[Rfam]
RNA sequence: GUAUGCCUGGCUCCCUGUAUGCCAUUUGCUUAGUCCAUUUUAGUACGAGAUGGCCUUUGUGGAUGGCGUGCGAGGAGCCAUGCAUAU
Numbered sequence: 001g002u003a004u005g006c007c008u009g010g011c012u013c014c015c016u017g018u019a020u021g022c023c024a025u026u027u028g029c030u031u032a033g034u035c036c037a038u039u040u041u042a043g044u045a046c047g048a049g050a051u052g053g054c055c056u057u058u059g060u061g062g063a064u065g066g067c068g069u070g071c072g073a074g075g076a077g078c079c080a081u082g083c084a085u086a087u
Stems, first nucleotide, its partner, number of pairs: 001087006008080007016072009027061003
Rfam assigns this 87-nucleotide RNA sequence from Thalictrum thalictroides to the family "mir-160 microRNA precursor family". The literature on the family includes a 2002 paper in Cell by Rhoades et al., "Prediction of plant microRNA targets". Rfam links the family to the GO terms RISC complex and miRNA-mediated post-transcriptional gene silencing.